Shown here is a 184-nucleotide RNA sequence from Synechococcus sp. CC9902, a member of the family "6S / SsrS RNA". The sequence is in the family's curated seed alignment. Lineage of the source: Bacteria > Cyanobacteriota > Synechococcales > Synechococcaceae > Synechococcus. Rfam classes the family as a non-coding RNA gene. The family's consensus secondary structure is taken from published work.
RNA sequence: CAUGAACUGCUGUGUUGGUGAAGGCCUUUUCUAGUGCUCUGAUCUGACUCUCUUUCGACUUGGGGAGGCUGUCGUGACGGUGACGUAAACCGGCCUUGUAGCCGGAAACGAAGCCCCACUUUGACUCCCCUUCUGGUUAACUCCAGGUCGACCACAAUCGGUCACACGGCAUGGUGGUUCACCC
Number, nucleotide and partner (000 for none) at each position: 001c000002a000003u181004g180005a179006a178007c177008u176009g175010c174011u173012g172013u171014g170015u169016u000017g000018g167019u166020g000021a000022a000023g000024g000025c000026c000027u000028u000029u000030u000031c000032u000033a000034g000035u154036g153037c000038u151039c000040u150041g149042a148043u147044c146045u145046g000047a000048c000049u000050c000051u000052c000053u000054u000055u000056c000057g000058a000059c000060u000061u000062g130063g129064g128065g000066a126067g125068g000069c123070u000071g121072u000073c000074g119075u118076g117077a000078c000079g114080g000081u000082g000083a000084c000085g109086u108087a000088a000089a000090c105091c104092g103093g102094c101095c000096u000097u000098g000099u000100a000101g094102c093103c092104g091105g090106a000107a000108a086109c085110g000111a000112a000113g000114c079115c000116c000117c076118a075119c074120u000121u071122u000123g069124a000125c067126u066127c000128c064129c063130c062131u000132u000133c000134u000135g000136g000137u000138u000139a000140a000141c000142u000143c000144c000145a045146g044147g043148u042149c041150g040151a038152c000153c036154a035155c000156a000157a000158u000159c000160g000161g000162u000163c000164a000165c000166a019167c018168g000169g015170c014171a013172u012173g011174g010175u009176g008177g007178u006179u005180c004181a003182c000183c000184c000